RNA: Group II catalytic intron D1-D4-7
Organism: Candidatus Thiodictyon syntrophicum
RNA sequence: CAAGUUAACAAAGUAGAACUAAGGGCACACGCGGAAUCGGUAACGAAUCCGUGUGAAGCUGCUCUGACAAUGUAACCCAUCCCGUAAGGGAGAAGGCGAACCCGCGAGGGCGAACCAACGACGCUAGCAUCGUGCGUUAGGGGGC
Numbered sequence: 001c002a003a004g005u006u007a008a009c010a011a012a013g014u015a016g017a018a019c020u021a022a023g024g025g026c027a028c029a030c031g032c033g034g035a036a037u038c039g040g041u042a043a044c045g046a047a048u049c050c051g052u053g054u055g056a057a058g059c060u061g062c063u064c065u066g067a068c069a070a071u072g073u074a075a076c077c078c079a080u081c082c083c084g085u086a087a088g089g090g091a092g093a094a095g096g097c098g099a100a101c102c103c104g105c106g107a108g109g110g111c112g113a114a115c116c117a118a119c120g121a122c123g124c125u126a127g128c129a130u131c132g133u134g135c136g137u138u139a140g141g142g143g144g145c
Stems, first nucleotide, its partner, number of pairs: 023064005028055008037046003080091004095116002102109002120138005